RNA sequence: UCGCAAUCCGCAAACCGGUGCAGCCGUAACGCGGAAGGUUUAUCAACCCACUACAGCGCCGGAAACCGGUGCGAAAGGUGAGCG
Numbered sequence: 001u002c003g004c005a006a007u008c009c010g011c012a013a014a015c016c017g018g019u020g021c022a023g024c025c026g027u028a029a030c031g032c033g034g035a036a037g038g039u040u041u042a043u044c045a046a047c048c049c050a051c052u053a054c055a056g057c058g059c060c061g062g063a064a065a066c067c068g069g070u071g072c073g074a075a076a077g078g079u080g081a082g083c084g
Stems, first nucleotide, its partner, number of pairs: 002084003007035005016026004037048004049080004056072007
RNA: SucA RNA motif
Organism: Rhizobacter gummiphilus